[Rfam]
RNA sequence: UCCAGUGGUAGUCAGCUGUCCAGAGCAGUUCUGUGCCUGUGAUAGUGUUACUCUGCUGGGAGAUAAAGGUCAGUCGUUUCUUCUGGCAGCUGUUGUCACUGUUUUGGAGACAACUAUGCCAAAAAGAAGUGGCAUUGUGCUUCCCUGAGAGCGCACUAAAGAUUUGCUUUCACUCUUUAGUGCUAGUCUGGAAGCAUACAUA
Numbered sequence: 001u002c003c004a005g006u007g008g009u010a011g012u013c014a015g016c017u018g019u020c021c022a023g024a025g026c027a028g029u030u031c032u033g034u035g036c037c038u039g040u041g042a043u044a045g046u047g048u049u050a051c052u053c054u055g056c057u058g059g060g061a062g063a064u065a066a067a068g069g070u071c072a073g074u075c076g077u078u079u080c081u082u083c084u085g086g087c088a089g090c091u092g093u094u095g096u097c098a099c100u101g102u103u104u105u106g107g108a109g110a111c112a113a114c115u116a117u118g119c120c121a122a123a124a125a126g127a128a129g130u131g132g133c134a135u136u137g138u139g140c141u142u143c144c145c146u147g148a149g150a151g152c153g154c155a156c157u158a159a160a161g162a163u164u165u166g167c168u169u170u171c172a173c174u175c176u177u178u179a180g181u182g183c184u185a186g187u188c189u190g191g192a193a194g195c196a197u198a199c200a201u202a
Stems, first nucleotide, its partner, number of pairs: 001060008011051002015046006021039003068135001069133004078128005084121005091112003097109001099107002137197008153183003157179006